Rfam assigns this 94-nucleotide sequence from Zhoulongquanvirus esscess to the family "PhotoRC-II RNA".

RNA sequence: UUAAGUUGUGCAACUCCCUGCAAACCGAGACCUCUAGGGAGUAUAAAAACGUCUCUCAUACCUCAGCUAAGGGUGCUGAGGAAUAGUAACUCCA
Number, nucleotide and partner (000 for none) at each position: 001u000002u000003a000004a000005g000006u000007u000008g000009u000010g000011c000012a000013a000014c041015u040016c039017c038018c037019u036020g035021c000022a000023a000024a000025c000026c000027g055028a054029g053030a052031c051032c000033u000034c000035u020036a019037g018038g017039g016040a015041g014042u000043a000044u000045a000046a000047a000048a000049a000050c000051g031052u030053c029054u028055c027056u000057c000058a000059u000060a000061c081062c080063u079064c078065a077066g076067c075068u000069a000070a000071g000072g000073g000074u000075g067076c066077u065078g064079a063080g062081g061082a000083a000084u000085a000086g000087u000088a000089a000090c000091u000092c000093c000094a000
A search with the family's covariance model found it, with a score of 77 bits.
It is annotated as a cis-regulatory element.
NCBI's taxonomy places the organism under Viruses, Duplodnaviria, Caudoviricetes, Kyanoviridae, Zhoulongquanvirus esscess.